Rfam assigns this 142-nucleotide RNA sequence from Cocos nucifera to the family "Small nucleolar RNA F1/F2/snoR5a". By type it is an H/ACA-box small nucleolar RNA. Lineage of the source: Eukaryota > Tracheophyta > Petrosaviidae > Arecaceae > Cocos. It scores 76 bits against the family's covariance model.
RNA sequence: GCAUGCCAUCGGGUAUCUGAUGCUCAGUCUAGUAGAUGGCUGUGCUUCUCGUUAGAAUGGCAGAUAAGGAGAGGAACAGGUCUUGCGACACUGGUUGCUCUACUUCCAUGAGCUUCCUGUUACUUUUACCCUGCUUACACGU
Numbered sequence: 001g002c003a004u005g006c007c008a009u010c011g012g013g014u015a016u017c018u019g020a021u022g023c024u025c026a027g028u029c030u031a032g033u034a035g036a037u038g039g040c041u042g043u044g045c046u047u048c049u050c051g052u053u054a055g056a057a058u059g060g061c062a063g064a065u066a067a068g069g070a071g072a073g074g075a076a077c078a079g080g081u082c083u084u085g086c087g088a089c090a091c092u093g094g095u096u097g098c099u100c101u102a103c104u105u106c107c108a109u110g111a112g113c114u115u116c117c118u119g120u121u122a123c124u125u126u127u128a129c130c131c132u133g134c135u136u137a138c139a140c141g142u
Stems, first nucleotide, its partner, number of pairs: 004062006019048002022045002025042005031037001075135001077133003090120002093117002097113003